A member of the RNA family "Small nucleolar RNA U6-53/MBII-28" from Atractosteus spatula, 112 nucleotides long. The pairing is the family consensus, mapped onto this sequence. NCBI's taxonomy places the organism under Eukaryota, Euteleostomi, Holostei, Lepisosteidae, Atractosteus. It scores 85 bits against the family's covariance model. For this family Rfam cites "RNomics: an experimental approach that identifies 201 candidates for novel, small, non-messenger RNAs in mouse" (Huttenhofer et al., EMBO J, 2001).

[Rfam]
RNA sequence: CUCCAGUGAUGAGUUACCAUGCUAAUACUGAUACACCAGGCUGGCUGUGUGUCUGUCUGGGUGUAGGUGAGUUAAACUCUCCUUCUCACAUUGUCUGUGUGCUCUGAGGAGA
Numbered sequence: 001c002u003c004c005a006g007u008g009a010u011g012a013g014u015u016a017c018c019a020u021g022c023u024a025a026u027a028c029u030g031a032u033a034c035a036c037c038a039g040g041c042u043g044g045c046u047g048u049g050u051g052u053c054u055g056u057c058u059g060g061g062u063g064u065a066g067g068u069g070a071g072u073u074a075a076a077c078u079c080u081c082c083u084u085c086u087c088a089c090a091u092u093g094u095c096u097g098u099g100u101g102c103u104c105u106g107a108g109g110a111g112a
Stems, first nucleotide, its partner, number of pairs: 001111004041055001043053003